[Rfam]
RNA sequence: GAAAGCUUGCAUGACUGGCGCUGAAGAUGGAUACCCAUCGGGGAGUGCAAGCGUUCAAAGCCGUGCGCCUGGGCAUCCUUU
Numbered sequence: 001g002a003a004a005g006c007u008u009g010c011a012u013g014a015c016u017g018g019c020g021c022u023g024a025a026g027a028u029g030g031a032u033a034c035c036c037a038u039c040g041g042g043g044a045g046u047g048c049a050a051g052c053g054u055u056c057a058a059a060g061c062c063g064u065g066c067g068c069c070u071g072g073g074c075a076u077c078c079u080u081u
Stems, first nucleotide, its partner, number of pairs: 003054001005052008015042002017069005027038004058076001060074003
A member of the RNA family "ZMP/ZTP riboswitch aptamer (pfl RNA motif)" from Pollutimonas nitritireducens, 81 nucleotides long. Lineage of the source: Bacteria > Pseudomonadati > Pseudomonadota > Burkholderiales > Pollutimonas. Gene Ontology terms of the family: one-carbon metabolic process and regulation of purine nucleotide biosynthetic process.